This 92-nucleotide RNA sequence from Thetisvirus ssm1 belongs to the Rfam family "PhotoRC-II RNA".
A search with the family's covariance model found it, with a score of 74 bits.
The family's RNA type in Rfam is cis-regulatory element.
The family's consensus secondary structure is taken from published work.
[Rfam]
RNA sequence: UUACAGACCACACCCCGCAAACCAAGACCUCUAGGGUGUAUAAAUCACGUCUUUCAUAUCCUGUCUAAGGGUGACAGGAAAUAGUAACUCCA
Numbered sequence: 001u002u003a004c005a006g007a008c009c010a011c012a013c014c015c016c017g018c019a020a021a022c023c024a025a026g027a028c029c030u031c032u033a034g035g036g037u038g039u040a041u042a043a044a045u046c047a048c049g050u051c052u053u054u055c056a057u058a059u060c061c062u063g064u065c066u067a068a069g070g071g072u073g074a075c076a077g078g079a080a081a082u083a084g085u086a087a088c089u090c091c092a
Stems, first nucleotide, its partner, number of pairs: 011038005017032001024053005059079007
Dot-bracket structure: ..........(((((.(......[[[[[...).)))))..........]]]]].....(((((((.......))))))).............